[Rfam]
RNA sequence: UGGGGCUGAGGUAGUAGAUUGAAUAGUUGUGGAGCCUUGUGCUCUGUCACUGAGAAAACUAUACAAUCUACUGUCUUUCCUAA
Numbered sequence: 001u002g003g004g005g006c007u008g009a010g011g012u013a014g015u016a017g018a019u020u021g022a023a024u025a026g027u028u029g030u031g032g033a034g035c036c037u038u039g040u041g042c043u044c045u046g047u048c049a050c051u052g053a054g055a056a057a058a059c060u061a062u063a064c065a066a067u068c069u070a071c072u073g074u075c076u077u078u079c080c081u082a083a
Stems, first nucleotide, its partner, number of pairs: 001083001003081003008077014023062005032044004047054001
This 83-nucleotide RNA from Triplophysa rosa belongs to the Rfam family "let-7 microRNA precursor family". From the family's description: This family represents the microRNAs (miRNA) let-7 and mir-98. let-7 was identified from a study of developmental timing in C. elegans, and was later shown to be part of a much larger class of non-coding RNAs termed miRNAs. The family's consensus secondary structure was predicted with RNAalifold. Its Rfam clan is "let-7 microRNA precursor clan". The organism belongs to Triplophysa, within Eukaryota. Gene Ontology terms of the family: miRNA-mediated post-transcriptional gene silencing and RISC complex. The family has 64 seed sequences and 8,694 matches in Rfam 15.1.